[Rfam]
RNA sequence: CAGGACUAUUUUAAAAUCACUCAUAUAAUCCCGUAAUAUGGUCGGGAGUUUCUACUGGUCACCGAUAAUGGCCUUCUAUGAGUGAAAGUUUAUGGGAU
Numbered sequence: 001c002a003g004g005a006c007u008a009u010u011u012u013a014a015a016a017u018c019a020c021u022c023a024u025a026u027a028a029u030c031c032c033g034u035a036a037u038a039u040g041g042u043c044g045g046g047a048g049u050u051u052c053u054a055c056u057g058g059u060c061a062c063c064g065a066u067a068a069u070g071g072c073c074u075u076c077u078a079u080g081a082g083u084g085a086a087a088g089u090u091u092a093u094g095g096g097a098u
Base pairs, nucleotide, nucleotide: 018084019083020082021081022080023079024078025077029047030046031045032044033043057073058072059071060070061069